The family of this 60-nucleotide sequence from Clostridium intestinale is "Fluoride riboswitch aptamer (crcB RNA motif)". Lineage of the source: Bacteria > Bacillati > Clostridia > Clostridiaceae > Clostridium intestinale. The literature on the family includes a 2012 paper in Nature by Ren et al., "Fluoride ion encapsulation by Mg2+ ions and phosphates in a fluoride riboswitch". The match comes from Rfam's covariance-model search (50 bits).

RNA sequence: UAAUUUAUAGGUGAUGGAGUUCACCUUAAUCGCAAUUUAGCUAAUGACUCCUACAGGUCC
Numbered sequence: 001u002a003a004u005u006u007a008u009a010g011g012u013g014a015u016g017g018a019g020u021u022c023a024c025c026u027u028a029a030u031c032g033c034a035a036u037u038u039a040g041c042u043a044a045u046g047a048c049u050c051c052u053a054c055a056g057g058u059c060c
Stems, first nucleotide, its partner, number of pairs: 010025004016051006032041002